[Rfam]
rpsB sRNA: a 110-nucleotide sequence from Martelella mediterranea. By type it is a small RNA.

RNA sequence: CACACGCAGGCCAUGGGGUGUUCCGGGAGAAAUCCGGUGCGCUCCGCCGGUGCCGGACGGGUUUCCGUCCGUUCUCAGGUCUGCGGAGGUUCAACCGGAAAAGGAGACAA
Numbered sequence: 001c002a003c004a005c006g007c008a009g010g011c012c013a014u015g016g017g018g019u020g021u022u023c024c025g026g027g028a029g030a031a032a033u034c035c036g037g038u039g040c041g042c043u044c045c046g047c048c049g050g051u052g053c054c055g056g057a058c059g060g061g062u063u064u065c066c067g068u069c070c071g072u073u074c075u076c077a078g079g080u081c082u083g084c085g086g087a088g089g090u091u092c093a094a095c096c097g098g099a100a101a102a103g104g105a106g107a108c109a110a
Stems, first nucleotide, its partner, number of pairs: 001088001003086001005085007015045002023037002026035001052073001054071007
It scores 51 bits against the family's covariance model.